This 69-nucleotide RNA from Branchiostoma belcheri belongs to the Rfam family "mir-278 microRNA precursor family".
RNA sequence: CCCACCCGGGCGAACACCGUCGCCAGUCGUCGGGCUUCAGCAGAUCGGUGGGGUUUUCGUUCGAGUGGG
Numbered sequence: 001c002c003c004a005c006c007c008g009g010g011c012g013a014a015c016a017c018c019g020u021c022g023c024c025a026g027u028c029g030u031c032g033g034g035c036u037u038c039a040g041c042a043g044a045u046c047g048g049u050g051g052g053g054u055u056u057u058c059g060u061u062c063g064a065g066u067g068g069g
Base pairs, nucleotide, nucleotide: 001069002068003067004066005065007063008062009061010060011059012058013057016054017053018052024047026045027044028043

Rfam links the family to the GO terms RISC complex and miRNA-mediated post-transcriptional gene silencing.
The literature on the family includes a 2007 paper in Genome Res by Ruby et al., "Evolution, biogenesis, expression, and target predictions of a substantially expanded set of Drosophila microRNAs".
The organism belongs to Branchiostoma, within Eukaryota.
The base pairs follow the family's consensus structure, which was predicted with RNAalifold.